[Rfam]
RNA: c-di-GMP-I-GGC riboswitch aptamer
Nucleotides: 086
Stems, first nucleotide, its partner, number of pairs: 003083001011036002016031006034072001040078003044075003047070003
Number, partner (000 for none) and nucleotide at each position: 001000c002000c003083u004000c005000a006000u007000a008000a009000g010000g011036g012035c013000a014000a015000a016031c017030c018029u019028a020027u021026u022000g023000a024000a025000a026021g027020g028019u029018a030017g031016g032000g033000a034072c035012g036011c037000a038000a039000a040078g041077c042076u043000a044075c045074g046073g047070g048069u049068c050000u051000a052000a053000a054000g055000u056000g057000g058000g059000g060000a061000a062000a063000a064000c065000c066000a067000u068049g069048a070047c071000a072034g073046c074045c075044g076042g077041g078040c079000c080000g081000c082000c083003a084000a085000a086000u